[Rfam]
Shown here is a 46-nucleotide sequence from Kolteria novifilia, a member of the family "Acido-Lenti-1 RNA". The family's consensus secondary structure is taken from published work. A search with the family's covariance model found it, with a score of 42 bits.
RNA sequence: CCUGGGACUGCCAUCCCAGGCUACGUGCUGCCGCCGCUUUGCGGCU
Numbered sequence: 001c002c003u004g005g006g007a008c009u010g011c012c013a014u015c016c017c018a019g020g021c022u023a024c025g026u027g028c029u030g031c032c033g034c035c036g037c038u039u040u041g042c043g044g045c046u
Stems, first nucleotide, its partner, number of pairs: 001020007033045005